[Rfam]
RNA: Small nucleolar RNA SNORD22
RNA sequence: CCCCCAUGAGGAGACCCCCACGUGUCUGACCCCCCGGUGGGCCCAGGACCUGCGAAGGUGGAACCCCCUGGAGCCCCCGGGGGGAGAGGAGGCCGAGGGUCCCAGCGGGGACGGUCUGAGGGGG
Numbered sequence: 001c002c003c004c005c006a007u008g009a010g011g012a013g014a015c016c017c018c019c020a021c022g023u024g025u026c027u028g029a030c031c032c033c034c035c036g037g038u039g040g041g042c043c044c045a046g047g048a049c050c051u052g053c054g055a056a057g058g059u060g061g062a063a064c065c066c067c068c069u070g071g072a073g074c075c076c077c078c079g080g081g082g083g084g085a086g087a088g089g090a091g092g093c094c095g096a097g098g099g100u101c102c103c104a105g106c107g108g109g110g111a112c113g114g115u116c117u118g119a120g121g122g123g124g
Stems, first nucleotide, its partner, number of pairs: 001123004